[Rfam]
RNA sequence: GCCGGUCCUCGGUAGUGGCUCCCGGGCCCGCCGCUCCAGUAUGCGGCCGCCCGAGGGCUUCGAUCGAAGACCGGC
Numbered sequence: 001g002c003c004g005g006u007c008c009u010c011g012g013u014a015g016u017g018g019c020u021c022c023c024g025g026g027c028c029c030g031c032c033g034c035u036c037c038a039g040u041a042u043g044c045g046g047c048c049g050c051c052c053g054a055g056g057g058c059u060u061c062g063a064u065c066g067a068a069g070a071c072c073g074g075c
Base pairs, nucleotide, nucleotide: 001075002074003073004072005071006070007069009067010066011065012064013063017059018058019057020056021055023053024052025051026050027049028046029045030044031043
RNA: Actino-pnp RNA